[Rfam]
RNA: Eukaryotic large subunit ribosomal RNA, nucleotides 432 to 989
Organism: Trichinella sp. T9
RNA sequence: CGGAUGGAGCUGACGGUGCAAUUUUGACCAAAAUCAGUCGUCGCUGUGUUCGUUGGCGAAUGAAUCUUUUGCAAACUUGUUUGUGUAGAUUAUCUUUCGUUUCGAAUGUACGCACGGUGCACUUUUGGUCGAUUAGCGUCACGAGCAACGUUCGCAUUUUUUGCUGCCGACAGUAAUUGUGUUUGUUGUUUUAAAAGCAACAAACAAUAAAGGCGGUUUGUGGAAGAGGUAAUUGUGGUAAAGACUUGUGCUUUUGUCUCAAUUGCCGUGCCAAUGCCGCAUCUGUCGGAUGAAUGUUGUUGUUGACAAGUUGAAGAGCAUUGUUCUGCGUACAAUUGUAAUGGGUCUGUUGGUGCCGUUGCGUUCGUGGGUUUCGGCUCACGAUUUGUCUGGUACGUCGGGAAAAAAGUCAAUUAUGAAUGUAAUUGAUCUGGCUACCGUGCGUAACGGUAUUCAAAUGUGUGUAUGAUGGACUUUAUUUGCAAUCGGCGCUCAAUGUGUUUUCUUUUAUCGGUGGCGUCAAUGUUAGCCUCCCAUCCGACCCGUCUUGAAACACGG
Numbered sequence: 001c002g003g004a005u006g007g008a009g010c011u012g013a014c015g016g017u018g019c020a021a022u023u024u025u026g027a028c029c030a031a032a033a034u035c036a037g038u039c040g041u042c043g044c045u046g047u048g049u050u051c052g053u054u055g056g057c058g059a060a061u062g063a064a065u066c067u068u069u070u071g072c073a074a075a076c077u078u079g080u081u082u083g084u085g086u087a088g089a090u091u092a093u094c095u096u097u098c099g100u101u102u103c104g105a106a107u108g109u110a111c112g113c114a115c116g117g118u119g120c121a122c123u124u125u126u127g128g129u130c131g132a133u134u135a136g137c138g139u140c141a142c143g144a145g146c147a148a149c150g151u152u153c154g155c156a157u158u159u160u161u162u163g164c165u166g167c168c169g170a171c172a173g174u175a176a177u178u179g180u181g182u183u184u185g186u187u188g189u190u191u192u193a194a195a196a197g198c199a200a201c202a203a204a205c206a207a208u209a210a211a212g213g214c215g216g217u218u219u220g221u222g223g224a225a226g227a228g229g230u231a232a233u234u235g236u237g238g239u240a241a242a243g244a245c246u247u248g249u250g251c252u253u254u255u256g257u258c259u260c261a262a263u264u265g266c267c268g269u270g271c272c273a274a275u276g277c278c279g280c281a282u283c284u285g286u287c288g289g290a291u292g293a294a295u296g297u298u299g300u301u302g303u304u305g306a307c308a309a310g311u312u313g314a315a316g317a318g319c320a321u322u323g324u325u326c327u328g329c330g331u332a333c334a335a336u337u338g339u340a341a342u343g344g345g346u347c348u349g350u351u352g353g354u355g356c357c358g359u360u361g362c363g364u365u366c367g368u369g370g371g372u373u374u375c376g377g378c379u380c381a382c383g384a385u386u387u388g389u390c391u392g393g394u395a396c397g398u399c400g401g402g403a404a405a406a407a408a409g410u411c412a413a414u415u416a417u418g419a420a421u422g423u424a425a426u427u428g429a430u431c432u433g434g435c436u437a438c439c440g441u442g443c444g445u446a447a448c449g450g451u452a453u454u455c456a457a458a459u460g461u462g463u464g465u466a467u468g469a470u471g472g473a474c475u476u477u478a479u480u481u482g483c484a485a486u487c488g489g490c491g492c493u494c495a496a497u498g499u500g501u502u503u504u505c506u507u508u509u510a511u512c513g514g515u516g517g518c519g520u521c522a523a524u525g526u527u528a529g530c531c532u533c534c535c536a537u538c539c540g541a542c543c544c545g546u547c548u549u550g551a552a553a554c555a556c557g558g
Base pairs, nucleotide, nucleotide: 001540002539003538004537005536006535007534009530010529011528012527017110020109023106024105025104026103114520115519116518118516119515120514543558544557545556546555